[Rfam]
The family of this 93-nucleotide RNA from Anopheles gambiae is "mir-981 microRNA precursor family". Gene Ontology terms of the family: miRNA-mediated post-transcriptional gene silencing and RISC complex. Pairs were carried over by alignment from the consensus structure, which was predicted with RNAalifold. Rfam 15.1 lists 180 matches to the family in 170 species. On this family, see Legeai et al., BMC Genomics 2010: "Bioinformatic prediction, deep sequencing of microRNAs and expression analysis during phenotypic plasticity in the pea aphid, Acyrthosiphon pisum". The sequence is in the family's curated seed alignment.
RNA sequence: CCUUAUCUGGAUCGGGUUUCGCUGGCUAACGUGUUGUGCGAGCGAGCAAAAAAAACUUCAAUUCGUUGUCGACGAAACCUGCACGGAGUAAGG
Numbered sequence: 001c002c003u004u005a006u007c008u009g010g011a012u013c014g015g016g017u018u019u020c021g022c023u024g025g026c027u028a029a030c031g032u033g034u035u036g037u038g039c040g041a042g043c044g045a046g047c048a049a050a051a052a053a054a055a056c057u058u059c060a061a062u063u064c065g066u067u068g069u070c071g072a073c074g075a076a077a078c079c080u081g082c083a084c085g086g087a088g089u090a091a092g093g
Stems, first nucleotide, its partner, number of pairs: 001093006013081009031064001033062003